[Rfam]
RNA sequence: CGUACGACACCGCCGAAACGUAAUCGAUUUACGUGCCGGGGACCCACGUGUCCUUGGGGUGAAUCAGCGAGGCUCACGCUUCGUUGUAGGGCAAUCUUCCCAGCCCGAACCCGUCAGCUAACUCGGUAGGCGGGCGCAGAGGAAGA
Numbered sequence: 001c002g003u004a005c006g007a008c009a010c011c012g013c014c015g016a017a018a019c020g021u022a023a024u025c026g027a028u029u030u031a032c033g034u035g036c037c038g039g040g041g042a043c044c045c046a047c048g049u050g051u052c053c054u055u056g057g058g059g060u061g062a063a064u065c066a067g068c069g070a071g072g073c074u075c076a077c078g079c080u081u082c083g084u085u086g087u088a089g090g091g092c093a094a095u096c097u098u099c100c101c102a103g104c105c106c107g108a109a110c111c112c113g114u115c116a117g118c119u120a121a122c123u124c125g126g127u128a129g130g131c132g133g134g135c136g137c138a139g140a141g142g143a144a145g146a
Base pairs, nucleotide, nucleotide: 011132012131013130014129018034019033020032021031022030023029035127036126037125038124039123040122045056046055057112058111059110065086066085067084068083069082070081071080072079073078089106090105091104092103
The record is a 146-nucleotide RNA from Antricoccus suffuscus, which matches "c-di-AMP riboswitch aptamer (ydaO/yuaA leader)" in Rfam. The source organism's lineage runs through Bacteria, Bacillati, Actinomycetes, Antricoccaceae and Antricoccus.